[Rfam]
RNA: 6S / SsrS RNA
RNA sequence: GCGGGGCUGCGGGGCGCGUCAGGAGUUCAUUCCCCGGGGCCUUAACGAUCCUAUGGGAGCUGUCCCUGACCCGGUCCCUGGACCGGGAUACACGGCGCCCACCUACUUAUGUAGGUUCCCGGGAUCGCUUCUCCGACGGCUUUUGUGGCUCCGCA
Numbered sequence: 001g002c003g004g005g006g007c008u009g010c011g012g013g014g015c016g017c018g019u020c021a022g023g024a025g026u027u028c029a030u031u032c033c034c035c036g037g038g039g040c041c042u043u044a045a046c047g048a049u050c051c052u053a054u055g056g057g058a059g060c061u062g063u064c065c066c067u068g069a070c071c072c073g074g075u076c077c078c079u080g081g082a083c084c085g086g087g088a089u090a091c092a093c094g095g096c097g098c099c100c101a102c103c104u105a106c107u108u109a110u111g112u113a114g115g116u117u118c119c120c121g122g123g124a125u126c127g128c129u130u131c132u133c134c135g136a137c138g139g140c141u142u143u144u145g146u147g148g149c150u151c152c153g154c155a
Base pairs, nucleotide, nucleotide: 002153003152004151005150006149007148008147009146010145011144012142013141014140015139017138018137019136031124032123033122034121036119037118038117039116040115041114055100056099057098059096060095061094062093063092070087071086072085073084074083